[Rfam]
Rfam assigns this 505-nucleotide RNA from Longispora fulva to the family "Saccharopolyspora sRNA 350". The family's consensus secondary structure was predicted with RNAfold.

RNA sequence: UUGACGGUGUGCUCCCAGAUGCCGGCGUCGUCGACGAGCACCCAGUCGCCGAAGUGGUCACCGCCGGCCAGCACGCCCAGGUUGGUCGGCGUGCCGUACUCGCCGACGCCGAGGCGGACCGCCUUGCCGUGCGCGAUCAGGUACACCUGGUCGGCGGCGUGCCCGAACUCGACGAUCACCUCGCCGGGACCGAAGUCCUGCCGGGUGAACCGGCCGGCCAGCGCCGUCAGCGUGUCGUGGUCGUCGAACCCGCGCAGCACCGGCAGCUCGCCGAGUUCCGCCGGGAUGACCUGGAUGUCGGAGCCGGAGUUGACGAAGGACACCUUGCCGUCGCCGACCGCGUACGUCAGGCGGCGGUUCACGCGGUAGGUGCCGCCGGGGACCUGGACCCACGGCAGUACCCGCAGCAGGUGGCGGGAGCUGAUCUCCUGCAUCUGGGGAACGGACUUGGUGGUCGUCGCCAGGUUGCGCGCGGCGGCCGUGCUGAGGCUGAGCUGGCGCUCCG
Numbered sequence: 001u002u003g004a005c006g007g008u009g010u011g012c013u014c015c016c017a018g019a020u021g022c023c024g025g026c027g028u029c030g031u032c033g034a035c036g037a038g039c040a041c042c043c044a045g046u047c048g049c050c051g052a053a054g055u056g057g058u059c060a061c062c063g064c065c066g067g068c069c070a071g072c073a074c075g076c077c078c079a080g081g082u083u084g085g086u087c088g089g090c091g092u093g094c095c096g097u098a099c100u101c102g103c104c105g106a107c108g109c110c111g112a113g114g115c116g117g118a119c120c121g122c123c124u125u126g127c128c129g130u131g132c133g134c135g136a137u138c139a140g141g142u143a144c145a146c147c148u149g150g151u152c153g154g155c156g157g158c159g160u161g162c163c164c165g166a167a168c169u170c171g172a173c174g175a176u177c178a179c180c181u182c183g184c185c186g187g188g189a190c191c192g193a194a195g196u197c198c199u200g201c202c203g204g205g206u207g208a209a210c211c212g213g214c215c216g217g218c219c220a221g222c223g224c225c226g227u228c229a230g231c232g233u234g235u236c237g238u239g240g241u242c243g244u245c246g247a248a249c250c251c252g253c254g255c256a257g258c259a260c261c262g263g264c265a266g267c268u269c270g271c272c273g274a275g276u277u278c279c280g281c282c283g284g285g286a287u288g289a290c291c292u293g294g295a296u297g298u299c300g301g302a303g304c305c306g307g308a309g310u311u312g313a314c315g316a317a318g319g320a321c322a323c324c325u326u327g328c329c330g331u332c333g334c335c336g337a338c339c340g341c342g343u344a345c346g347u348c349a350g351g352c353g354g355c356g357g358u359u360c361a362c363g364c365g366g367u368a369g370g371u372g373c374c375g376c377c378g379g380g381g382a383c384c385u386g387g388a389c390c391c392a393c394g395g396c397a398g399u400a401c402c403c404g405c406a407g408c409a410g411g412u413g414g415c416g417g418g419a420g421c422u423g424a425u426c427u428c429c430u431g432c433a434u435c436u437g438g439g440g441a442a443c444g445g446a447c448u449u450g451g452u453g454g455u456c457g458u459c460g461c462c463a464g465g466u467u468g469c470g471c472g473c474g475g476c477g478g479c480c481g482u483g484c485u486g487a488g489g490c491u492g493a494g495c496u497g498g499c500g501c502u503c504c505g
Stems, first nucleotide, its partner, number of pairs: 006390003010386002015381002018328001021325001028319002031316002037311003041307002045305001047303001049301004054233002058229001060227002063224002065111004075103001077102001079100002083096004117222001122217002127212001129210002131206002134203002139199003143196002150191001155186005160178002164174002234296003240290006249283001254278001256277003261270002329342003352378006360372003391431002394428002397425001399423002403418001405416001407415001437476001440473001443470002446467001447465006477504002480500003484497001487496002

Rfam 15.1 lists 1,170 matches to the family in 705 species.